Annotation
MIR1862 microRNA precursor family: an 89-nucleotide RNA from Oryza rufipogon. Rfam links the family to the GO terms miRNA-mediated post-transcriptional gene silencing and RISC complex.

RNA sequence: UACUCCCUCCGUCCCAUAAUAUAGCAACCUAGUACCGGAUGGGACAUUUUAUAGUACUAGGUUGCUAUAUUAUGGGACGGAGGGAGUAU
Numbered sequence: 001u002a003c004u005c006c007c008u009c010c011g012u013c014c015c016a017u018a019a020u021a022u023a024g025c026a027a028c029c030u031a032g033u034a035c036c037g038g039a040u041g042g043g044a045c046a047u048u049u050u051a052u053a054g055u056a057c058u059a060g061g062u063u064g065c066u067a068u069a070u071u072a073u074g075g076g077a078c079g080g081a082g083g084g085a086g087u088a089u
Base pairs, nucleotide, nucleotide: 001088002087003086004085005084006083007082008081009080010079011078012077013076014075015074016073017072018071019070020069021068022067023066024065025064026063027062028061029060030059031058032057033056034055035054038050039049

About this RNA
The source organism's lineage runs through Eukaryota, Streptophyta, Embryophyta, Magnoliopsida and Oryza.